This 241-nucleotide RNA sequence from Trifolium subterraneum belongs to the Rfam family "MIR2655 microRNA precursor family".
Rfam links the family to the GO terms RISC complex and miRNA-mediated post-transcriptional gene silencing.
The family's consensus secondary structure was predicted with RNAalifold.
RNA sequence: ACCUUAUCUUUUAAAAGUUUCAAGUUGGUACUUUAUCUUUUCUCCAGGUUUCAAAUUGGUACCUUCUGUCAAUUUUUUAACUAUUACCGUUAAAUUUGGACACGUGUCAUUAAUUUAUAUAUCCAAAAAAUUGCAACGUGUCAAAAUUUAACAGUAAUAGUUAAAAAGUUGACAGAAGGUACCAACUUGAAACCUGCAGAAAAGAUAAGGUACCAACUUGAAACUUUUAAAAGAUAAGGUA
Numbered sequence: 001a002c003c004u005u006a007u008c009u010u011u012u013a014a015a016a017g018u019u020u021c022a023a024g025u026u027g028g029u030a031c032u033u034u035a036u037c038u039u040u041u042c043u044c045c046a047g048g049u050u051u052c053a054a055a056u057u058g059g060u061a062c063c064u065u066c067u068g069u070c071a072a073u074u075u076u077u078u079a080a081c082u083a084u085u086a087c088c089g090u091u092a093a094a095u096u097u098g099g100a101c102a103c104g105u106g107u108c109a110u111u112a113a114u115u116u117a118u119a120u121a122u123c124c125a126a127a128a129a130a131u132u133g134c135a136a137c138g139u140g141u142c143a144a145a146a147u148u149u150a151a152c153a154g155u156a157a158u159a160g161u162u163a164a165a166a167a168g169u170u171g172a173c174a175g176a177a178g179g180u181a182c183c184a185a186c187u188u189g190a191a192a193c194c195u196g197c198a199g200a201a202a203a204g205a206u207a208a209g210g211u212a213c214c215a216a217c218u219u220g221a222a223a224c225u226u227u228u229a230a231a232a233g234a235u236a237a238g239g240u241a
Stems, first nucleotide, its partner, number of pairs: 002239007023218003027214003031210013045196003